[Rfam]
RNA sequence: GGGGGCGACAUGGUUUCGACGUGGGUCGCAAAACCUGAGGUGCAUGCCGAGGUGCGGGAGACCUCGUAAAACUAUCCGCACACCAACAGCUGCCAACGACGACAGCUACGCUCUCGCUGCCUAACCCCAGCGGGCCUCAGACCGCCGCUUGCCGAUGGACGGCGGGUUCCUGGGGUAACCAGACAUCGGAUCGCGGUGAUGGGUGUCCGGACUUGAUCCGCUAAAACUCCACCGGACUCGCCGACCGAGUGCCCUGCCCCUCGGGCGCCGGGAGGCUAGACCCAAUAGAGCGGGCUAAGCAUGUAGAACCAAGGGCAGAGGGCUUGCGGACGCGGGUUCGAUUCCCGCCGCCUCCACCA
Numbered sequence: 001g002g003g004g005g006c007g008a009c010a011u012g013g014u015u016u017c018g019a020c021g022u023g024g025g026u027c028g029c030a031a032a033a034c035c036u037g038a039g040g041u042g043c044a045u046g047c048c049g050a051g052g053u054g055c056g057g058g059a060g061a062c063c064u065c066g067u068a069a070a071a072c073u074a075u076c077c078g079c080a081c082a083c084c085a086a087c088a089g090c091u092g093c094c095a096a097c098g099a100c101g102a103c104a105g106c107u108a109c110g111c112u113c114u115c116g117c118u119g120c121c122u123a124a125c126c127c128c129a130g131c132g133g134g135c136c137u138c139a140g141a142c143c144g145c146c147g148c149u150u151g152c153c154g155a156u157g158g159a160c161g162g163c164g165g166g167u168u169c170c171u172g173g174g175g176u177a178a179c180c181a182g183a184c185a186u187c188g189g190a191u192c193g194c195g196g197u198g199a200u201g202g203g204u205g206u207c208c209g210g211a212c213u214u215g216a217u218c219c220g221c222u223a224a225a226a227c228u229c230c231a232c233c234g235g236a237c238u239c240g241c242c243g244a245c246c247g248a249g250u251g252c253c254c255u256g257c258c259c260c261u262c263g264g265g266c267g268c269c270g271g272g273a274g275g276c277u278a279g280a281c282c283c284a285a286u287a288g289a290g291c292g293g294g295c296u297a298a299g300c301a302u303g304u305a306g307a308a309c310c311a312a313g314g315g316c317a318g319a320g321g322g323c324u325u326g327c328g329g330a331c332g333c334g335g336g337u338u339c340g341a342u343u344c345c346c347g348c349c350g351c352c353u354c355c356a357c358c359a
Stems, first nucleotide, its partner, number of pairs: 001355007020328008034315003039310003043303005048066005053080006113134007135175006142165006149158001152189006193221004205238001208235001210233001240276003245271003252265003256295004261288001332348005
RNA: transfer-messenger RNA